[Rfam]
RNA sequence: CGGUCAGAGCAGUCGUUUUGCGGUUUACACUGCGAGCUGCCCUCCGAAGGGGAACGACGGCAGAAGGGCAGAUGGCCA
Numbered sequence: 001c002g003g004u005c006a007g008a009g010c011a012g013u014c015g016u017u018u019u020g021c022g023g024u025u026u027a028c029a030c031u032g033c034g035a036g037c038u039g040c041c042c043u044c045c046g047a048a049g050g051g052g053a054a055c056g057a058c059g060g061c062a063g064a065a066g067g068g069c070a071g072a073u074g075g076c077c078a
Stems, first nucleotide, its partner, number of pairs: 002077005009033004038070006045063001
Record summary:
CyVA-1 RNA: a 78-nucleotide RNA sequence from Gloeobacter kilaueensis. Rfam's curators put it in the seed alignment. By type it is a small RNA. About the family: Cyanobacteria, Acidobacteria (1 example), Verrucomicrobia (1 example).